The record is a 397-nucleotide RNA sequence from Haloquadratum walsbyi, which matches "Archaeal RNase P" in Rfam. The family's RNA type in Rfam is ribozyme. The base pairs follow the family's consensus structure, which is taken from published work. Rfam's curators write: Ribonuclease P (RNase P) is a ubiquitous endoribonuclease, found in archaea, bacteria and eukarya as well as chloroplasts and mitochondria. Its best characterised activity is the generation of mature 5'-ends of tRNAs by cleaving the 5'-leader elements of precursor-tRNAs. Cellular RNase Ps are ribonucleoproteins. RNA from bacterial RNase Ps retains its catalytic activity in the absence of the protein subunit, i.e. it is a ribozyme. Isolated eukaryotic and archaeal RNase P RNA has not been shown to retain its catalytic function, but is still essential for the catalytic activity of the holoenzyme. Although the archaeal and eukaryotic holoenzymes have a much greater protein content than the bacterial ones, the RNA cores from all the three lineages are homologous -- helices corresponding to P1, P2, P3, P4, and P10/11 are common to all cellular RNase P RNAs. Yet, there is considerable sequence variation, particularly among the eukaryotic RNAs. On this family, see Brown, Nucleic Acids Res 1999: "The Ribonuclease P Database".
RNA sequence: GGCAGAGAGAGCUCAGCUCCCGUGGUCGAUACAAUGGUGAAUGAUGUAUUGACACAUCAACUGCCGUAUCGGCAAACGAGGAAAGUCCCCCCACCGUCUGGACAGGUGACCGAGCACAAGCUUGGAGUUGGAGACAGCUGGCACUGGAACAGAAACGAUACCACUCAGCCUGACCAAUGAGACGUGCGAACCACCCCGUAAGGGACGGCAGUUAACCCGUCGAGGGAGCGGCUAUGUGACGUGUCGAUAACGGAAUAAAACCGCAUUAGAUGGGUGAGAAUGGAUGGAACGGCGAAUCCUCACCGGUGCAAGUCCACGCCAGAAAGGUAGUCCGGACAGGGCGUGGACGCUUAGCCGAAUGCUGAGUUGAACAGAAGGGGGCUUACUCCUCUCAGCC
Numbered sequence: 001g002g003c004a005g006a007g008a009g010a011g012c013u014c015a016g017c018u019c020c021c022g023u024g025g026u027c028g029a030u031a032c033a034a035u036g037g038u039g040a041a042u043g044a045u046g047u048a049u050u051g052a053c054a055c056a057u058c059a060a061c062u063g064c065c066g067u068a069u070c071g072g073c074a075a076a077c078g079a080g081g082a083a084a085g086u087c088c089c090c091c092c093a094c095c096g097u098c099u100g101g102a103c104a105g106g107u108g109a110c111c112g113a114g115c116a117c118a119a120g121c122u123u124g125g126a127g128u129u130g131g132a133g134a135c136a137g138c139u140g141g142c143a144c145u146g147g148a149a150c151a152g153a154a155a156c157g158a159u160a161c162c163a164c165u166c167a168g169c170c171u172g173a174c175c176a177a178u179g180a181g182a183c184g185u186g187c188g189a190a191c192c193a194c195c196c197c198g199u200a201a202g203g204g205a206c207g208g209c210a211g212u213u214a215a216c217c218c219g220u221c222g223a224g225g226g227a228g229c230g231g232c233u234a235u236g237u238g239a240c241g242u243g244u245c246g247a248u249a250a251c252g253g254a255a256u257a258a259a260a261c262c263g264c265a266u267u268a269g270a271u272g273g274g275u276g277a278g279a280a281u282g283g284a285u286g287g288a289a290c291g292g293c294g295a296a297u298c299c300u301c302a303c304c305g306g307u308g309c310a311a312g313u314c315c316a317c318g319c320c321a322g323a324a325a326g327g328u329a330g331u332c333c334g335g336a337c338a339g340g341g342c343g344u345g346g347a348c349g350c351u352u353a354g355c356c357g358a359a360u361g362c363u364g365a366g367u368u369g370a371a372c373a374g375a376a377g378g379g380g381g382c383u384u385a386c387u388c389c390u391c392u393c394a395g396c397c
Stems, first nucleotide, its partner, number of pairs: 001397003005393005010387002012366006021078003083384003087381005092308004097336006105304005110125005126139005140299002145295001147293001161283003164278004169273002182212002312348009
Dot-bracket structure: (((.(((((((((((((...(((....................................................)))....[[[.[[[[[((((.[[[[[[..((((((((((......)))))(((((....)))))((...(.(.............(((((((.((...........((...........................))...........................................................)).))))..))).........).)..)))))))))))...(((((((((..........]]]]]]...)))))))))............))))))..........]]]]]]]].)).))))).)))